The family of this 84-nucleotide sequence from Brevibacillus fluminis is "c-di-GMP-I-GGC riboswitch aptamer".

RNA sequence: UUCGAAAAUGGCAAACUUAUCGAAAGGUAAGGACGCAAAGCUACGGGUCUAAGGUCGUGUACUAUGAUCGCCGGGCUGCCGAAU
Number, nucleotide and partner (000 for none) at each position: 001u000002u000003c081004g080005a000006a000007a000008a000009u000010g000011g036012c035013a000014a000015a000016c031017u030018u029019a028020u027021c026022g000023a000024a000025a000026g021027g020028u019029a018030a017031g016032g000033a000034c070035g012036c011037a000038a000039a077040g076041c075042u074043a000044c073045g072046g071047g068048u067049c066050u000051a000052a000053g000054g000055u000056c000057g000058u000059g000060u000061a000062c000063u000064a000065u000066g049067a048068u047069c000070g034071c046072c045073g044074g042075g041076c040077u039078g000079c000080c004081g003082a000083a000084u000